[Rfam]
RNA sequence: GUAAUGUUUCUUGCUCAAAUGAGUAUUCCAACCACAGCAGCAGCACGAGGACUUUUUAAGCACUAAGGCCAGUGCAAGUAGCAGGGCGAGAGAGAUCCGCGACAUCGAUUUCAUCAAUCAUCAUCUACACCAACGGAUCUGAUAAAAAGUAUCGAAUCUUCUCUCGAGAAGUUCCUGAAGCUGCUGUUCUGAGAUGCUCAUUUGAGCAAGCAAUAUUAU
Numbered sequence: 001g002u003a004a005u006g007u008u009u010c011u012u013g014c015u016c017a018a019a020u021g022a023g024u025a026u027u028c029c030a031a032c033c034a035c036a037g038c039a040g041c042a043g044c045a046c047g048a049g050g051a052c053u054u055u056u057u058a059a060g061c062a063c064u065a066a067g068g069c070c071a072g073u074g075c076a077a078g079u080a081g082c083a084g085g086g087c088g089a090g091a092g093a094g095a096u097c098c099g100c101g102a103c104a105u106c107g108a109u110u111u112c113a114u115c116a117a118u119c120a121u122c123a124u125c126u127a128c129a130c131c132a133a134c135g136g137a138u139c140u141g142a143u144a145a146a147a148a149g150u151a152u153c154g155a156a157u158c159u160u161c162u163c164u165c166g167a168g169a170a171g172u173u174c175c176u177g178a179a180g181c182u183g184c185u186g187u188u189c190u191g192a193g194a195u196g197c198u199c200a201u202u203u204g205a206g207c208a209a210g211c212a213a214u215a216u217u218a219u
Stems, first nucleotide, its partner, number of pairs: 004216005010210018029191002
A member of the RNA family "MIR828 microRNA precursor family" from Punica granatum, 219 nucleotides long. The literature on the family includes a 2010 paper in Plant Cell by Ma et al., "Arabidopsis lyrata small RNAs: transient MIRNA and small interfering RNA loci within the Arabidopsis genus". The family has 16 seed sequences and 204 matches in Rfam 15.1. It scores 84 bits against the family's covariance model. NCBI's taxonomy places the organism under Eukaryota, Viridiplantae, Streptophyta, Gunneridae, Punica. Rfam links the family to the GO terms miRNA-mediated post-transcriptional gene silencing and RISC complex.